[Rfam]
RNA sequence: AUAAUAGUGUAAUAACACCCACAUAUAUGCUGGAGAAUCGGCUCCAGUGUCUCUACCAGGACACCGUAAAUGUCCGGACUAUGCGGGGAAGCGACAUCCGU
Dot-bracket structure: .................(((.((((...(((((((......)))))))........(.(((((.......))))).)..)))).)))..............